[Rfam]
RNA sequence: UGGCGCCCGAACAGGGACCUGGAUACAGGGGAAGAAGUGAGGAAGUGGAGCUAAAGUCGGCCGAAGGUGAAAGUGGAAGAAAAAUUCCUCCGGACAUCACGGGAGCCUGCUGCAUUGGAACCAGAAGUGAGUAACAGUGCCUGAUUAUGGGACAAGAAUUAAGCCAGCAUCAUAUUUAUGUAGGGCAAUUAAAAAAGGCUUUAAAUGCACGAGGAGCAAAGGUUAGAAGUAAUGAUUUGUUUAAAUUUUUUGAUUUUGUAAAAGAUACGUGCCCUU
Numbered sequence: 001u002g003g004c005g006c007c008c009g010a011a012c013a014g015g016g017a018c019c020u021g022g023a024u025a026c027a028g029g030g031g032a033a034g035a036a037g038u039g040a041g042g043a044a045g046u047g048g049a050g051c052u053a054a055a056g057u058c059g060g061c062c063g064a065a066g067g068u069g070a071a072a073g074u075g076g077a078a079g080a081a082a083a084a085u086u087c088c089u090c091c092g093g094a095c096a097u098c099a100c101g102g103g104a105g106c107c108u109g110c111u112g113c114a115u116u117g118g119a120a121c122c123a124g125a126a127g128u129g130a131g132u133a134a135c136a137g138u139g140c141c142u143g144a145u146u147a148u149g150g151g152a153c154a155a156g157a158a159u160u161a162a163g164c165c166a167g168c169a170u171c172a173u174a175u176u177u178a179u180g181u182a183g184g185g186c187a188a189u190u191a192a193a194a195a196a197g198g199c200u201u202u203a204a205a206u207g208c209a210c211g212a213g214g215a216g217c218a219a220a221g222g223u224u225a226g227a228a229g230u231a232a233u234g235a236u237u238u239g240u241u242u243a244a245a246u247u248u249u250u251u252g253a254u255u256u257u258g259u260a261a262a263a264g265a266u267a268c269g270u271g272c273c274c275u276u
Stems, first nucleotide, its partner, number of pairs: 006031003015024001085129001087127001089125002095117001100112003137153002140151004160203003163199003210252007220238006261276002264273001266271001

Shown here is a 276-nucleotide RNA sequence from Colobus angolensis, a member of the family "Mason-Pfizer monkey virus packaging signal". The base pairs follow the family's consensus structure, which was predicted with PFOLD. Lineage of the source: Eukaryota > Euteleostomi > Cercopithecoidea > Cercopithecidae > Colobus angolensis. About the family: This family represents a group of sequences that are related to the Mason-Pfizer monkey virus (MPMV) packaging signal. The packaging signal is located in the 5' UTR and is required for specific RNA encapsidation. A search with the family's covariance model found it, with a score of 193 bits.